Plant small nucleolar RNA U3: a 214-nucleotide RNA sequence from Musa acuminata. The source organism's lineage runs through Eukaryota, Streptophyta, Liliopsida, Zingiberales and Musa acuminata. Its family is annotated with RNA processing and nucleolus in the Gene Ontology. By type it is a C/D-box small nucleolar RNA. The base pairs follow the family's consensus structure, which is taken from published work. Rfam 15.1 lists 3,759 matches to the family in 258 species. It scores 166 bits against the family's covariance model. Rfam's curators write: Small nucleolar RNAs (snoRNAs) are involved in the processing and modification of rRNA in the nucleolus. There are two main classes of snoRNAs: the box C/D class, and the box H/ACA class. U3 snoRNA is a member of the box C/D class. Indeed, the box C/D element is a subset of the six short sequence elements found in all U3 snoRNAs, namely boxes A, A', B, C, C', and D. The U3 snoRNA secondary structure is characterised by a small 5' domain (with boxes A and A'), and a larger 3' domain (with boxes B, C, C', and D), the two domains being linked by a single-stranded hinge. Boxes B and C form the B/C motif, which appears to be exclusive to U3 snoRNAs, and boxes C' and D form the C'/D motif. The latter is functionally similar to the C/D motifs found in other snoRNAs. The 5' domain and the hinge region act as a pre-rRNA-binding domain. The 3' domain has conserved protein-binding sites. Both the box B/C and box C'/D motifs are sufficient for nuclear retention of U3 snoRNA. The box C'/D motif is also necessary for nucleolar localisation, stability and hyper-methylation of U3 snoRNA. Both box B/C and C'/D motifs are involved in specific protein interactions and are necessary for the rRNA processing functions of U3 snoRNA.
RNA sequence: AUGACCUUACUUGAACAGGAUCUGUUCUAAAGGUUCGUACAACUGUCUUUUAGAACUCUAACGAGACUGGCACAAAAGUCUGGUUGAUGAAUUAGGACCUCAGGAUCGGAGCGUGAUUAACGGUGGGGAUCUCUCGAGGUCUCUCACGGUAGGGGAUCGUUCUCAGCUGGUGGUGCCCAUCGGCUGGGGCGAUCCUGGGGUUGUCUGACAGACC
Numbered sequence: 001a002u003g004a005c006c007u008u009a010c011u012u013g014a015a016c017a018g019g020a021u022c023u024g025u026u027c028u029a030a031a032g033g034u035u036c037g038u039a040c041a042a043c044u045g046u047c048u049u050u051u052a053g054a055a056c057u058c059u060a061a062c063g064a065g066a067c068u069g070g071c072a073c074a075a076a077a078g079u080c081u082g083g084u085u086g087a088u089g090a091a092u093u094a095g096g097a098c099c100u101c102a103g104g105a106u107c108g109g110a111g112c113g114u115g116a117u118u119a120a121c122g123g124u125g126g127g128g129a130u131c132u133c134u135c136g137a138g139g140u141c142u143c144u145c146a147c148g149g150u151a152g153g154g155g156a157u158c159g160u161u162c163u164c165a166g167c168u169g170g171u172g173g174u175g176c177c178c179a180u181c182g183g184c185u186g187g188g189g190c191g192a193u194c195c196u197g198g199g200g201u202u203g204u205c206u207g208a209c210a211g212a213c214c
Base pairs, nucleotide, nucleotide: 001038002037003035005033006032007031013027014026015025016024017023018022043069045067046066048064049063051061053059078213079212080211081210082209097201098200099199100198101197102196103195104194105193106192107191108190110161111160112159113158120150121149123147124146125145126144127143128141129140130139131138132137163187164186165185166184167183168182169181170180171179172178